[Rfam]
U11 spliceosomal RNA: a 134-nucleotide sequence from Myotis lucifugus. On this family, see Montzka and Steitz, Proc Natl Acad Sci U S A 1988: "Additional low-abundance human small nuclear ribonucleoproteins: U11, U12, etc". Rfam classes the family as a spliceosomal small nuclear RNA. The organism belongs to Myotis, within Eukaryota. Rfam links the family to the GO terms pre-mRNA 5'-splice site binding, U11 snRNP and mRNA 5'-splice site recognition.

RNA sequence: AAAAAGGGGGGCUUCUGUUAUGAGUGGCACAUGUAGGGCAGCUUGAUUGCUCUACGUGCGGUAUUGACAUUAAGAGAUUUCGGAAGCAUACUUUUUUGCUAUCUGGGCAGCUGAUCGUUGGUCCUGGCGCCCAU
Numbered sequence: 001a002a003a004a005a006g007g008g009g010g011g012c013u014u015c016u017g018u019u020a021u022g023a024g025u026g027g028c029a030c031a032u033g034u035a036g037g038g039c040a041g042c043u044u045g046a047u048u049g050c051u052c053u054a055c056g057u058g059c060g061g062u063a064u065u066g067a068c069a070u071u072a073a074g075a076g077a078u079u080u081c082g083g084a085a086g087c088a089u090a091c092u093u094u095u096u097u098g099c100u101a102u103c104u105g106g107g108c109a110g111c112u113g114a115u116c117g118u119u120g121g122u123c124c125u126g127g128c129g130c131c132c133a134u
Stems, first nucleotide, its partner, number of pairs: 011087005016029005030058012059082003063078003105132004110128003113123004